Rfam assigns this 100-nucleotide RNA from Ferrimonas balearica to the family "Purine riboswitch aptamer".
The match comes from Rfam's covariance-model search (56 bits).
Lineage of the source: Bacteria > Gammaproteobacteria > Ferrimonadaceae > Ferrimonas > Ferrimonas balearica.
Gene Ontology term of the family: purine nucleobase biosynthetic process.
[Rfam]
RNA sequence: GCGCCCAACAAUUUAUGGCGCUGUAUAUCUCUGGAAAUCUGGUCCAGAAGUCUCUACCACAAGACCGAAUCUUGUGACUACAGUCCAACCCCCAUCCGGC
Numbered sequence: 001g002c003g004c005c006c007a008a009c010a011a012u013u014u015a016u017g018g019c020g021c022u023g024u025a026u027a028u029c030u031c032u033g034g035a036a037a038u039c040u041g042g043u044c045c046a047g048a049a050g051u052c053u054c055u056a057c058c059a060c061a062a063g064a065c066c067g068a069a070u071c072u073u074g075u076g077a078c079u080a081c082a083g084u085c086c087a088a089c090c091c092c093c094a095u096c097c098g099g100c
Base pairs, nucleotide, nucleotide: 018086020084021083022082023081024080025079030048031047032046033045034044035043058076059075060074061073062072063071064070